[Rfam]
RNA sequence: UAGUGUUACAGGUCUUUCAGAAUUUGUCUAGCAGGCAUUCUGGUUUUUGCCAAAAGCCGCC
Numbered sequence: 001u002a003g004u005g006u007u008a009c010a011g012g013u014c015u016u017u018c019a020g021a022a023u024u025u026g027u028c029u030a031g032c033a034g035g036c037a038u039u040c041u042g043g044u045u046u047u048u049g050c051c052a053a054a055a056g057c058c059g060c061c
Stems, first nucleotide, its partner, number of pairs: 034058003038055002041052004
A member of the RNA family "U7 small nuclear RNA" from Piliocolobus tephrosceles, 61 nucleotides long. Taxonomically the source falls in Piliocolobus (Eukaryota, Eumetazoa, Deuterostomia, Vertebrata). Animal histone pre-mRNAs are spliced by a different mechanism than nuclear pre-mRNAs and self-splicing introns. This processing involves the U7 snRNP, which contains only one RNA species: U7. The 5' end of U7 RNA is thought to base-pair to a conserved spacer element downstream of the cleavage site in histone pre-mRNA. This family contains a number of annotated U7 pseudogenes.